[Rfam]
Shown here is an 85-nucleotide RNA sequence from Notothenia coriiceps, a member of the family "Small nucleolar RNA SNORD100". On this family, see Galardi et al., Mol Cell Biol 2002: "Purified box C/D snoRNPs are able to reproduce site-specific 2'-O-methylation of target RNA in vitro". The family has 26 seed sequences and 838 matches in Rfam 15.1.
RNA sequence: UGCAUCCUUGAUGACACCCUGGCUCCCUCUACUGAACCUUUUGUGUGGAUGCCUGCCAAUGUUACCCAAUUUUUGUCUUGAUGUG
Dot-bracket structure: ((((((.........................................................................))))))